This 91-nucleotide RNA from Ipomoea nil belongs to the Rfam family "Small nucleolar RNA Z122". On this family, see Chen et al., Nucleic Acids Res 2003: "The high diversity of snoRNAs in plants: identification and comparative study of 120 snoRNA genes from Oryza sativa". NCBI's taxonomy places the organism under Eukaryota, Streptophyta, lamiids, Convolvulaceae, Ipomoea. Pairs were carried over by alignment from the consensus structure, which was predicted with PFOLD.

RNA sequence: GUUGGGAAAUGAUGAGAAAAUUUAUUCUGUAUCAGAGGCUCAGAAAUCUGUGCUUUGCUGAGUUAUUUUUGCACGUCAGUCUGAUCCCAAU
Numbered sequence: 001g002u003u004g005g006g007a008a009a010u011g012a013u014g015a016g017a018a019a020a021u022u023u024a025u026u027c028u029g030u031a032u033c034a035g036a037g038g039c040u041c042a043g044a045a046a047u048c049u050g051u052g053c054u055u056u057g058c059u060g061a062g063u064u065a066u067u068u069u070u071g072c073a074c075g076u077c078a079g080u081c082u083g084a085u086c087c088c089a090a091u
Base pairs, nucleotide, nucleotide: 001091002090003089004088005087006086007085